[Rfam]
RNA sequence: GUGUAUCAGUAGGAAUUGAACCUACAAAUUCGCCAAUUAUGAGUUGGAUGCUUUAAUCAUUCAUCCAUGGAUGC
Numbered sequence: 001g002u003g004u005a006u007c008a009g010u011a012g013g014a015a016u017u018g019a020a021c022c023u024a025c026a027a028a029u030u031c032g033c034c035a036a037u038u039a040u041g042a043g044u045u046g047g048a049u050g051c052u053u054u055a056a057u058c059a060u061u062c063a064u065c066c067a068u069g070g071a072u073g074c
Stems, first nucleotide, its partner, number of pairs: 003074005009025005039068003043065001045063006
RNA: Plastid-ycf2 5UTR RNA